Rfam assigns this 86-nucleotide RNA from Klebsormidium nitens to the family "Selenocysteine transfer RNA".
[Rfam]
RNA sequence: GCUCCCUUGAUUCCGAGUGGUCUCGGAUGCGGGCUUCAAACCCGUAGCGGCCUAGCGGCCGAGCUGUUCGAUUCAGCCUAGGGAGC
Numbered sequence: 001g002c003u004c005c006c007u008u009g010a011u012u013c014c015g016a017g018u019g020g021u022c023u024c025g026g027a028u029g030c031g032g033g034c035u036u037c038a039a040a041c042c043c044g045u046a047g048c049g050g051c052c053u054a055g056c057g058g059c060c061g062a063g064c065u066g067u068u069c070g071a072u073u074c075a076g077c078c079u080a081g082g083g084a085g086c
Stems, first nucleotide, its partner, number of pairs: 001086007009078001012027006028046006048061005063077004
Taxonomically the source falls in Klebsormidium (Eukaryota, Viridiplantae, Streptophyta, Klebsormidiales).